Small nucleolar RNA U54: an 81-nucleotide RNA sequence from Vanilla planifolia. It is annotated as a C/D-box small nucleolar RNA. Pairs were carried over by alignment from the consensus structure, which was predicted with PFOLD. Rfam describes the family as follows. U54 is a C/D box small nucleolar RNA, which acts as a methylation guide for 18S ribosomal RNA in plants. The family is grouped with related families in Rfam's "U54 clan". It scores 59 bits against the family's covariance model.

RNA sequence: AGCUCAGUGAUUGUAGCAAAACCAAUUGGCACCAUACACUAUUCUGACGUUAAGGUGCUGACUUUAAAUCGAAUGAGAGCU
Numbered sequence: 001a002g003c004u005c006a007g008u009g010a011u012u013g014u015a016g017c018a019a020a021a022c023c024a025a026u027u028g029g030c031a032c033c034a035u036a037c038a039c040u041a042u043u044c045u046g047a048c049g050u051u052a053a054g055g056u057g058c059u060g061a062c063u064u065u066a067a068a069u070c071g072a073a074u075g076a077g078a079g080c081u
Stems, first nucleotide, its partner, number of pairs: 001081005